[Rfam]
RNA sequence: ACUUCAUAAAUGUUUUCGUCUGUUAUUGACGUGCUCGGGCGUCCGGUACGCCUGAAGACGACCCUAGUUGGACCUAGAACGGCCUGAGGUAGAGGGGUUUUAGUCGGGUAGGUCCGAGGAUUUCUUCCUCGGGAAUCCGACACUACCCAGUCGUACGGACGGCUGGGUGUCUUUUGAAGAUUUCCCCUCUUCCACGAAA
Numbered sequence: 001a002c003u004u005c006a007u008a009a010a011u012g013u014u015u016u017c018g019u020c021u022g023u024u025a026u027u028g029a030c031g032u033g034c035u036c037g038g039g040c041g042u043c044c045g046g047u048a049c050g051c052c053u054g055a056a057g058a059c060g061a062c063c064c065u066a067g068u069u070g071g072a073c074c075u076a077g078a079a080c081g082g083c084c085u086g087a088g089g090u091a092g093a094g095g096g097g098u099u100u101u102a103g104u105c106g107g108g109u110a111g112g113u114c115c116g117a118g119g120a121u122u123u124c125u126u127c128c129u130c131g132g133g134a135a136u137c138c139g140a141c142a143c144u145a146c147c148c149a150g151u152c153g154u155a156c157g158g159a160c161g162g163c164u165g166g167g168u169g170u171c172u173u174u175u176g177a178a179g180a181u182u183u184c185c186c187c188u189c190u191u192c193c194a195c196g197a198a199a
Stems, first nucleotide, its partner, number of pairs: 035058002065197001067195002088193002091190002094186003103141005113133008143169001145168005

Notes: Rfam assigns this 199-nucleotide RNA from Agrilus planipennis to the family "R2 RNA element". A reference for the family is Ruschak et al. (2004), "Secondary structure models of the 3' untranslated regions of diverse R2 RNAs", RNA. The base pairs follow the family's consensus structure, which is taken from published work. The organism belongs to Agrilus, within Eukaryota. Rfam describes the family as follows. This family represents the 3' UTR region of the R2 retrotransposable element. This family is known to interact with the R2-encoded reverse transcriptase in a reaction known as target primed reverse transcription (TPRT). Its family is annotated with regulation of reverse transcription in the Gene Ontology.